The record is a 115-nucleotide sequence from Medicago truncatula, which matches "MIR2593 microRNA precursor family" in Rfam. A search with the family's covariance model found it, with a score of 100 bits.
[Rfam]
RNA sequence: UUAUAAGCAAAAAUCAAUUUUUUAGGUUCAUUUAAUAAAUGAUGCAUUUGAUCAGUAAUAUAGACCAAAUACAUCAUUUAUUGAAUGAAUCUAAAAAGUUGAUUUUGGCUUAUAA
Numbered sequence: 001u002u003a004u005a006a007g008c009a010a011a012a013a014u015c016a017a018u019u020u021u022u023u024a025g026g027u028u029c030a031u032u033u034a035a036u037a038a039a040u041g042a043u044g045c046a047u048u049u050g051a052u053c054a055g056u057a058a059u060a061u062a063g064a065c066c067a068a069a070u071a072c073a074u075c076a077u078u079u080a081u082u083g084a085a086u087g088a089a090u091c092u093a094a095a096a097a098g099u100u101g102a103u104u105u106u107g108g109c110u111u112a113u114a115a
Base pairs, nucleotide, nucleotide: 002114003113004112005111006110007109010106011105012104013103015101016100017099018098019097020096021095022094023093024092025091027089028088029087030086031085032084033083034082035081036080037079038078039077040076041075042074043073044072049067050066052064